[Rfam]
The record is a 136-nucleotide RNA sequence from Otolemur garnettii, which matches "Small nucleolar RNA SNORA42/SNORA80 family" in Rfam. NCBI's taxonomy places the organism under Eukaryota, Sarcopterygii, Tetrapoda, Mammalia, Otolemur. Pairs were carried over by alignment from the consensus structure, which was predicted with RNAalifold. Its family is annotated with RNA processing and nucleolus in the Gene Ontology. The match comes from Rfam's covariance-model search (139 bits). By type it is an H/ACA-box small nucleolar RNA. Rfam 15.1 lists 1,535 matches to the family in 183 species.

RNA sequence: GCAUGGGUUUGGAUUUAUAGCAGGCCUGUUUCCCUGGGCCUCUCAUAGUAUACCAUGCCAGAGCAAACUAUGGCCCUGAACCAUUGCCUAGCCUCUGUGUCCAUAGGCUGUUGGCAUUGAAGUGGGUUGCACAGAG
Number, nucleotide and partner (000 for none) at each position: 001g058002c057003a056004u055005g053006g000007g051008u050009u000010u000011g000012g000013a000014u000015u048016u047017a046018u045019a000020g043021c000022a041023g040024g039025c037026c036027u000028g000029u000030u000031u000032c000033c000034c000035u000036g026037g025038g000039c024040c023041u022042c000043u020044c000045a018046u017047a016048g015049u000050a008051u007052a000053c005054c000055a004056u003057g002058c001059c000060a000061g000062a000063g000064c000065a000066a000067a000068c000069u000070a000071u129072g128073g127074c126075c125076c124077u000078g000079a000080a000081c000082c119083a118084u000085u000086g000087c114088c113089u110090a109091g108092c107093c106094u105095c000096u000097g000098u000099g000100u000101c000102c000103a000104u000105a094106g093107g092108c091109u090110g089111u000112u000113g088114g087115c000116a000117u000118u083119g082120a000121a000122g000123u000124g076125g075126g074127u073128u072129g071130c000131a000132c000133a000134g000135a000136g000